[Rfam]
RNA: Group II catalytic intron D1-D4-6
Organism: Fimbriiglobus ruber
RNA sequence: CCAAUCCCAUCCGGCAGAGCGUGGCCCGCAGCCGGAAGCGAGUCUUGCGUGCCGCGGUGGGGCGACCCACACCACGAAGCGUAGACCGCGAGCACUGGGGCCCGGCGAUGGAGCCCCGAAAGGGUUUAUGUCGUGGGGAGCCUUCCUCGUAUUGGGCCGGGGGGGCCGCGCCAAUCCGUCGUCAUGGCCAGACGGAUCGGUCCCGCCGGGGUCAGAGACUC
Numbered sequence: 001c002c003a004a005u006c007c008c009a010u011c012c013g014g015c016a017g018a019g020c021g022u023g024g025c026c027c028g029c030a031g032c033c034g035g036a037a038g039c040g041a042g043u044c045u046u047g048c049g050u051g052c053c054g055c056g057g058u059g060g061g062g063c064g065a066c067c068c069a070c071a072c073c074a075c076g077a078a079g080c081g082u083a084g085a086c087c088g089c090g091a092g093c094a095c096u097g098g099g100g101c102c103c104g105g106c107g108a109u110g111g112a113g114c115c116c117c118g119a120a121a122g123g124g125u126u127u128a129u130g131u132c133g134u135g136g137g138g139a140g141c142c143u144u145c146c147u148c149g150u151a152u153u154g155g156g157c158c159g160g161g162g163g164g165g166c167c168g169c170g171c172c173a174a175u176c177c178g179u180c181g182u183c184a185u186g187g188c189c190a191g192a193c194g195g196a197u198c199g200g201u202c203c204c205g206c207c208g209g210g211g212u213c214a215g216a217g218a219c220u221c
Stems, first nucleotide, its partner, number of pairs: 010036005019029003022190004038089002042086004046081002048076004054072001057070005111213001113212006133206002136204004140166003145161003171200002174197007